The record is an 81-nucleotide RNA sequence from Paenibacillus sabuli, which matches "ZMP/ZTP riboswitch aptamer (pfl RNA motif)" in Rfam. NCBI's taxonomy places the organism under Bacteria, Bacillati, Caryophanales, Paenibacillaceae, Paenibacillus. It scores 57 bits against the family's covariance model.
RNA sequence: CGGAUCCGAUGUGACUGGCGACGAUAGUGGGGAACCACGAUGGAGCAUCGGAACAUACGGCCGGUCGCCUGGGCAAAGAGC
Numbered sequence: 001c002g003g004a005u006c007c008g009a010u011g012u013g014a015c016u017g018g019c020g021a022c023g024a025u026a027g028u029g030g031g032g033a034a035c036c037a038c039g040a041u042g043g044a045g046c047a048u049c050g051g052a053a054c055a056u057a058c059g060g061c062c063g064g065u066c067g068c069c070u071g072g073g074c075a076a077a078g079a080g081c
Base pairs, nucleotide, nucleotide: 003054005052006051007050008049009048010047011046012045015042017069018068019067020066021065027038028037029036030035060074061073062072